The record is a 212-nucleotide RNA sequence from Jejuibacter calystegiae, which matches "Enterobacterial sRNA STnc180" in Rfam. The match comes from Rfam's covariance-model search (82 bits). Lineage of the source: Bacteria > Pseudomonadati > Pseudomonadota > Gammaproteobacteria > Jejuibacter. Rfam classes the family as a small RNA.
RNA sequence: AAUGAAAAAUAACCACAGCAGCCGGGGGUUGAUAAAAGUAUCAACCUGAAUCCAUUAAUAAAAUUAAUAGUUACUUUUAUUAUGAAUAGACAUUGCGUCAAAUACUGGUCAUGGCUGAGCGCCUUUAGCCUGUCAAUGGCGUUCUGGGCUCAGCUGGUCUGGGUUAUUACCCGCUAAUUCAAAAUGCCCGCAUCGCGGGCGUUUUGCUAUCU
Numbered sequence: 001a002a003u004g005a006a007a008a009a010u011a012a013c014c015a016c017a018g019c020a021g022c023c024g025g026g027g028g029u030u031g032a033u034a035a036a037a038g039u040a041u042c043a044a045c046c047u048g049a050a051u052c053c054a055u056u057a058a059u060a061a062a063a064u065u066a067a068u069a070g071u072u073a074c075u076u077u078u079a080u081u082a083u084g085a086a087u088a089g090a091c092a093u094u095g096c097g098u099c100a101a102a103u104a105c106u107g108g109u110c111a112u113g114g115c116u117g118a119g120c121g122c123c124u125u126u127a128g129c130c131u132g133u134c135a136a137u138g139g140c141g142u143u144c145u146g147g148g149c150u151c152a153g154c155u156g157g158u159c160u161g162g163g164u165u166a167u168u169a170c171c172c173g174c175u176a177a178u179u180c181a182a183a184a185u186g187c188c189c190g191c192a193u194c195g196c197g198g199g200c201g202u203u204u205u206g207c208u209a210u211c212u
Base pairs, nucleotide, nucleotide: 010073011072012071013070018064029044030043031042032041033040108149109148110147116136119133120132121131150166152164154162155161184202185201186200187199188198189197190196191195